[Rfam]
Source information
The family of this 126-nucleotide RNA from Oceanobacillus zhaokaii is "ylbH leader". It is annotated as a cis-regulatory leader. Rfam describes the family as follows. This family is a putative regulatory RNA structure that is found upstream of the ylbH gene in B. subtilis and related low GC Gram-positive bacteria. The base pairs follow the family's consensus structure. The source organism's lineage runs through Bacteria, Bacillati, Caryophanales, Bacillaceae and Oceanobacillus.

RNA sequence: AACAAAAAAUCCUGCAGAGAAAGACUCUGCAGGUCCUUUUGUUUUUUAGUAUAAAAAAACAAAUAGGUAAAGGGAGAGGAGAAACCGGAGAAGAACUUAUGGGGAAGUAUAAGUCCUUCUCCGUAU
Numbered sequence: 001a002a003c004a005a006a007a008a009a010u011c012c013u014g015c016a017g018a019g020a021a022a023g024a025c026u027c028u029g030c031a032g033g034u035c036c037u038u039u040u041g042u043u044u045u046u047u048a049g050u051a052u053a054a055a056a057a058a059a060c061a062a063a064u065a066g067g068u069a070a071a072g073g074g075a076g077a078g079g080a081g082a083a084a085c086c087g088g089a090g091a092a093g094a095a096c097u098u099a100u101g102g103g104g105a106a107g108u109a110u111a112a113g114u115c116c117u118u119c120u121c122c123g124u125a126u
Base pairs, nucleotide, nucleotide: 011033012032013031014030015029016028017027018026019025034074035073036072037071038070042059043058044057045056046055047054086123087122088121089120090119091118092117093116095114096113097112098111099110